[Rfam]
About this RNA:
A member of the RNA family "TPP riboswitch aptamer (THI element)" from Clostridium intestinale, 99 nucleotides long. Rfam's curators write: Vitamin B(1) in its active form thiamin pyrophosphate (TPP) is an essential coenzyme that is synthesised by coupling of pyrimidine and thiazole moieties in bacteria. The previously detected thiamin-regulatory element, thi box was extended, resulting in a new, highly conserved RNA secondary structure, the THI element, which is widely distributed in eubacteria and also occurs in some archaea. Analysis of operon structures identified a large number of new candidate thiamin-regulated genes, mostly transporters, in various prokaryotic organisms. Pairs were carried over by alignment from the consensus structure, which is taken from published work. NCBI's taxonomy places the organism under Bacteria, Bacillota, Eubacteriales, Clostridium, Clostridium intestinale.

RNA sequence: AUUGUGCACUAGGGGAGCUGUUAAGGCUGAGAUGAAUUUAUUCAGACCCUUGAACCUGCACUGGGUAAUGCCAGCGAAGGGAAGUGAGAAGUAAUAUGA
Numbered sequence: 001a002u003u004g005u006g007c008a009c010u011a012g013g014g015g016a017g018c019u020g021u022u023a024a025g026g027c028u029g030a031g032a033u034g035a036a037u038u039u040a041u042u043c044a045g046a047c048c049c050u051u052g053a054a055c056c057u058g059c060a061c062u063g064g065g066u067a068a069u070g071c072c073a074g075c076g077a078a079g080g081g082a083a084g085u086g087a088g089a090a091g092u093a094a095u096a097u098g099a
Base pairs, nucleotide, nucleotide: 007086008085009084010083011050012049013048014047017027018026019025034043035042036041055080056079057078061074062073063072064071